[Rfam]
RNA sequence: GGCGUAAAGCGCGCGCAGGCGGCCCGCCAAGCGGCCUCGUCGAAGCCGGGGGCUCAACCCCCGGAAGCGACCCGAACUGGCGGGCUCGAGUGGGGCAGGGGAGGAUGGAAUUCCCGGUGUAGCGGUGAAAUGCGCAGAUAUCGGGAGGAACACCGACGGCGAAGGCAGCCCUCUGGGCCUUCACUGACGCUGAGGCGCGAAAGCUGGGGGAGCGAACAGGAUUAGAUACCCUGGUAGUCCCAGCCGUAAACGAUGGGCGCUAGGUGCGGGGGGACACGACCCUCCGUGCCGCAGCCAACGCAUUAAGCGCCCCGCCUGGGGAGUACGGCCGCAAGGCUAAAACUCAAAGGAAU
Numbered sequence: 001g002g003c004g005u006a007a008a009g010c011g012c013g014c015g016c017a018g019g020c021g022g023c024c025c026g027c028c029a030a031g032c033g034g035c036c037u038c039g040u041c042g043a044a045g046c047c048g049g050g051g052g053c054u055c056a057a058c059c060c061c062c063g064g065a066a067g068c069g070a071c072c073c074g075a076a077c078u079g080g081c082g083g084g085c086u087c088g089a090g091u092g093g094g095g096c097a098g099g100g101g102a103g104g105a106u107g108g109a110a111u112u113c114c115c116g117g118u119g120u121a122g123c124g125g126u127g128a129a130a131u132g133c134g135c136a137g138a139u140a141u142c143g144g145g146a147g148g149a150a151c152a153c154c155g156a157c158g159g160c161g162a163a164g165g166c167a168g169c170c171c172u173c174u175g176g177g178c179c180u181u182c183a184c185u186g187a188c189g190c191u192g193a194g195g196c197g198c199g200a201a202a203g204c205u206g207g208g209g210g211a212g213c214g215a216a217c218a219g220g221a222u223u224a225g226a227u228a229c230c231c232u233g234g235u236a237g238u239c240c241c242a243g244c245c246g247u248a249a250a251c252g253a254u255g256g257g258c259g260c261u262a263g264g265u266g267c268g269g270g271g272g273g274a275c276a277c278g279a280c281c282c283u284c285c286g287u288g289c290c291g292c293a294g295c296c297a298a299c300g301c302a303u304u305a306a307g308c309g310c311c312c313c314g315c316c317u318g319g320g321g322a323g324u325a326c327g328g329c330c331g332c333a334a335g336g337c338u339a340a341a342a343c344u345c346a347a348a349g350g351a352a353u
Base pairs, nucleotide, nucleotide: 001316002315003314009313011198012197013196014195016192018191019190020189022085023084024083025082026081027080028079030078031077032074033073034072037070038069039068040067046064047063048062049061050060051059052058089185090184091183092181093180094179095178096177100174101173102172103171104170106168107151111147112146113145114144115143116142117141118140122133123132124131159166160165203244204243205242206241207240208239212238213237217233218232219231220230255312256311257310258309259308260307263290264289265288266287267286268285269284270283271282272281273280294301295300318345319344320343327338328337329336330335
Rfam assigns this 353-nucleotide part of an RNA from Slackia exigua to the family "Bacterial small subunit ribosomal RNA". On this family, see Cannone et al., BMC Bioinformatics 2002: "The comparative RNA web (CRW) site: an online database of comparative sequence and structure information for ribosomal, intron, and other RNAs". Clan: SSU clan. Its family is annotated with structural constituent of ribosome and ribosome in the Gene Ontology. Lineage of the source: Bacteria > Bacillati > Actinomycetota > Eggerthellaceae > Slackia exigua. The base pairs follow the family's consensus structure, which is taken from published work.